[Rfam]
RNA: Small nucleolar RNA snR60/Z15/Z230/Z193/J17
Organism: Terfezia boudieri
RNA sequence: GGAUCAUAGCAUGAUGAUACACACCAAUCAAGCAUAGUUCACCUGAGGGAGCUACUACUCCUGCUGAACGACACUCUUACCAUCUUUCGCUCCUAUCUGAUAUGAAUA
Numbered sequence: 001g002g003a004u005c006a007u008a009g010c011a012u013g014a015u016g017a018u019a020c021a022c023a024c025c026a027a028u029c030a031a032g033c034a035u036a037g038u039u040c041a042c043c044u045g046a047g048g049g050a051g052c053u054a055c056u057a058c059u060c061c062u063g064c065u066g067a068a069c070g071a072c073a074c075u076c077u078u079a080c081c082a083u084c085u086u087u088c089g090c091u092c093c094u095a096u097c098u099g100a101u102a103u104g105a106a107u108a
Stems, first nucleotide, its partner, number of pairs: 004105005